[Rfam]
RNA sequence: CCAAAGGCUCUUUUAAGAGCCACCCAAUUAAUAUUAAAAUGGCGU
Numbered sequence: 001c002c003a004a005a006g007g008c009u010c011u012u013u014u015a016a017g018a019g020c021c022a023c024c025c026a027a028u029u030a031a032u033a034u035u036a037a038a039a040u041g042g043c044g045u
Stems, first nucleotide, its partner, number of pairs: 006021006
RNA: Histone 3' UTR stem-loop